Shown here is a 107-nucleotide RNA sequence from Prunus dulcis, a member of the family "MIR6274 microRNA precursor family". The organism belongs to Prunus, within Eukaryota. Gene Ontology terms of the family: miRNA-mediated post-transcriptional gene silencing and RISC complex.
[Rfam]
RNA sequence: GGAAAAACACUUUUUGCUAUUUCUGAUUAAUAACGCAAUGACACGUAAGAUAACUUUUUCACAUGUCAUUGUGUUAUUGGCUAGAUAUAGCAAAAAAAAUGAUAUCC
Numbered sequence: 001g002g003a004a005a006a007a008c009a010c011u012u013u014u015u016g017c018u019a020u021u022u023c024u025g026a027u028u029a030a031u032a033a034c035g036c037a038a039u040g041a042c043a044c045g046u047a048a049g050a051u052a053a054c055u056u057u058u059u060c061a062c063a064u065g066u067c068a069u070u071g072u073g074u075u076a077u078u079g080g081c082u083a084g085a086u087a088u089a090g091c092a093a094a095a096a097a098a099a100u101g102a103u104a105u106c107c
Stems, first nucleotide, its partner, number of pairs: 002106002005103001012095009022085004027080017045062002048059003